[Rfam]
RNA sequence: CAGCUUUGAAGCAAGAGGCUGUUUCAAGUCGCAGGUUCUUGUGGAGCUUGACCGAGGGUUGUGUAUUACCUCAACUUGAAUAGGCUUAUUAAGCUGAAAGAAAAUGCUCAUC
Numbered sequence: 001c002a003g004c005u006u007u008g009a010a011g012c013a014a015g016a017g018g019c020u021g022u023u024u025c026a027a028g029u030c031g032c033a034g035g036u037u038c039u040u041g042u043g044g045a046g047c048u049u050g051a052c053c054g055a056g057g058g059u060u061g062u063g064u065a066u067u068a069c070c071u072c073a074a075c076u077u078g079a080a081u082a083g084g085c086u087u088a089u090u091a092a093g094c095u096g097a098a099a100g101a102a103a104a105u106g107c108u109c110a111u112c
Base pairs, nucleotide, nucleotide: 002048003047004046011042012041013040014039015038016037017036019034020033021032022031024079025078026077027076063107064106065105083095084094085093086092